[Rfam]
RNA sequence: UCGAGUGGCUAGCCGAACCCUGCCAUCACCCGAGGUCCGUUCGAUUCGCCGGCAGGGGCGGGGGAACCAACUUCGGGCGCCAUGGUGCGUCCUUGGGGUGAAGCCGCGAGCCACGUCCGUCAGGGCGACUCGCGGCCGGACAUCUCCGGUCCGAACCCGACAGCUCACCUCGUAGGCACCAGGAGAGGCCGU
Numbered sequence: 001u002c003g004a005g006u007g008g009c010u011a012g013c014c015g016a017a018c019c020c021u022g023c024c025a026u027c028a029c030c031c032g033a034g035g036u037c038c039g040u041u042c043g044a045u046u047c048g049c050c051g052g053c054a055g056g057g058g059c060g061g062g063g064g065a066a067c068c069a070a071c072u073u074c075g076g077g078c079g080c081c082a083u084g085g086u087g088c089g090u091c092c093u094u095g096g097g098g099u100g101a102a103g104c105c106g107c108g109a110g111c112c113a114c115g116u117c118c119g120u121c122a123g124g125g126c127g128a129c130u131c132g133c134g135g136c137c138g139g140a141c142a143u144c145u146c147c148g149g150u151c152c153g154a155a156c157c158c159g160a161c162a163g164c165u166c167a168c169c170u171c172g173u174a175g176g177c178a179c180c181a182g183g184a185g186a187g188g189c190c191g192u
Stems, first nucleotide, its partner, number of pairs: 012177003018057007058173006068095002096158003104135007138152004
RNA: c-di-AMP riboswitch aptamer (ydaO/yuaA leader)
Organism: Cellulomonas denverensis